The family of this 83-nucleotide sequence from Anolis carolinensis is "mir-130 microRNA precursor family". Rfam's curators put it in the seed alignment. A reference for the family is Lagos-Quintana et al. (2002), "Identification of tissue-specific microRNAs from mouse", Curr Biol. Its family is annotated with miRNA-mediated post-transcriptional gene silencing and RISC complex in the Gene Ontology.
RNA sequence: CCCUGUCCAAGGCUCUUUUCACAUUGUGCUUCUGUCUGUGCCCGACCCAAGCAGUGCAAUGUUAAAAGGGCAUUGGGUGGGUG
Numbered sequence: 001c002c003c004u005g006u007c008c009a010a011g012g013c014u015c016u017u018u019u020c021a022c023a024u025u026g027u028g029c030u031u032c033u034g035u036c037u038g039u040g041c042c043c044g045a046c047c048c049a050a051g052c053a054g055u056g057c058a059a060u061g062u063u064a065a066a067a068g069g070g071c072a073u074u075g076g077g078u079g080g081g082u083g
Stems, first nucleotide, its partner, number of pairs: 001083001003081001005078006012071008022061009